[Rfam]
RNA: U7 small nuclear RNA
Organism: Sapajus apella
RNA sequence: UAGUGUUACAGCUCUUUUUAGAACUUGUCUAGCAAGUUUUCCUAUUUUUACUGAAAACCUUC
Number, nucleotide and partner (000 for none) at each position: 001u000002a000003g000004u000005g000006u000007u000008a000009c000010a000011g000012c000013u000014c000015u000016u000017u000018u000019u000020a000021g000022a000023a000024c000025u000026u000027g000028u000029c000030u000031a000032g000033c000034a000035a000036g058037u057038u056039u055040u054041c053042c000043u050044a049045u000046u000047u000048u000049u044050a043051c000052u000053g041054a040055a039056a038057a037058c036059c000060u000061u000062c000